Shown here is an 86-nucleotide sequence from Ornithorhynchus anatinus, a member of the family "mir-130 microRNA precursor family". The organism belongs to Ornithorhynchus, within Eukaryota. It scores 51 bits against the family's covariance model.

[Rfam]
RNA sequence: CCCCAGCCCGUGCUCUUUCCACUGAGCCACGCUGCUUCCCUAACCUAGCUGCAGCGUGGCUCAGUGGAAAGAGCAUGGGCUUUGGA
Numbered sequence: 001c002c003c004c005a006g007c008c009c010g011u012g013c014u015c016u017u018u019c020c021a022c023u024g025a026g027c028c029a030c031g032c033u034g035c036u037u038c039c040c041u042a043a044c045c046u047a048g049c050u051g052c053a054g055c056g057u058g059g060c061u062c063a064g065u066g067g068a069a070a071g072a073g074c075a076u077g078g079g080c081u082u083u084g085g086a
Stems, first nucleotide, its partner, number of pairs: 002085002005081006012074008022064009
Dot-bracket structure: .((.((((((.((((((((..(((((((((.........................)))))))))..)))))))).))))))..)).